The family of this 98-nucleotide RNA sequence from Arachis hypogaea is "MIR394 microRNA precursor family".
Its family is annotated with miRNA-mediated post-transcriptional gene silencing and RISC complex in the Gene Ontology.
[Rfam]
RNA sequence: CUUACAGAGUUUAUUGGCAUUCUGUCCACCUCCUUUCCUUUCUAUCUUUUCCUUAGCUGAGGGAGGAGGUGGGCAUGCUGCCAACUGAGUUCUGUUGC
Dot-bracket structure: ..........(..((((((...(((((((((((((((.......................)))))))))))))))...))))))...)..........
Numbered sequence: 001c002u003u004a005c006a007g008a009g010u011u012u013a014u015u016g017g018c019a020u021u022c023u024g025u026c027c028a029c030c031u032c033c034u035u036u037c038c039u040u041u042c043u044a045u046c047u048u049u050u051c052c053u054u055a056g057c058u059g060a061g062g063g064a065g066g067a068g069g070u071g072g073g074c075a076u077g078c079u080g081c082c083a084a085c086u087g088a089g090u091u092c093u094g095u096u097g098c
Stems, first nucleotide, its partner, number of pairs: 011088001014084006023075015